[Rfam]
RNA sequence: AGAGUAUAAACGAAUAUGUAUCAUAUAAUUUUGACAAUAUGGGUCAUAAGUCUCUACCAGCCACCGUAAAUGGCUGACUAUGAAUACGGUAAAUUACUCCA
Numbered sequence: 001a002g003a004g005u006a007u008a009a010a011c012g013a014a015u016a017u018g019u020a021u022c023a024u025a026u027a028a029u030u031u032u033g034a035c036a037a038u039a040u041g042g043g044u045c046a047u048a049a050g051u052c053u054c055u056a057c058c059a060g061c062c063a064c065c066g067u068a069a070a071u072g073g074c075u076g077a078c079u080a081u082g083a084a085u086a087c088g089g090u091a092a093a094u095u096a097c098u099c100c101a
Stems, first nucleotide, its partner, number of pairs: 018087004022082004029049002032046004058076006

The family of this 101-nucleotide sequence from Peptacetobacter hominis is "Purine riboswitch aptamer". Lineage of the source: Bacteria > Bacillati > Bacillota > Peptostreptococcaceae > Peptacetobacter. It scores 76 bits against the family's covariance model.